[Rfam]
RNA sequence: UAAAGCCCUCGGGCUUACCGGGUCUGGUCAAACCGGUCCGAUUUGCUACGUCGGGCCGGUUCGGGCCGGGCCGGGUCAACCCGGCCUGUUU
Numbered sequence: 001u002a003a004a005g006c007c008c009u010c011g012g013g014c015u016u017a018c019c020g021g022g023u024c025u026g027g028u029c030a031a032a033c034c035g036g037u038c039c040g041a042u043u044u045g046c047u048a049c050g051u052c053g054g055g056c057c058g059g060u061u062c063g064g065g066c067c068g069g070g071c072c073g074g075g076u077c078a079a080c081c082c083g084g085c086c087u088g089u090u091u
Stems, first nucleotide, its partner, number of pairs: 010022001012019002031061009067088008